[Rfam]
RNA sequence: CGCUGAGGACGACCUCAGCGCUUUUACUCAUCGCGGGGACGGCCCCG
Numbered sequence: 001c002g003c004u005g006a007g008g009a010c011g012a013c014c015u016c017a018g019c020g021c022u023u024u025u026a027c028u029c030a031u032c033g034c035g036g037g038g039a040c041g042g043c044c045c046c047g
Base pairs, nucleotide, nucleotide: 001020002019003018004017005016006015007014008013034047035046036045037044038043
RNA: Guanidine-II riboswitch aptamer (mini-ykkC)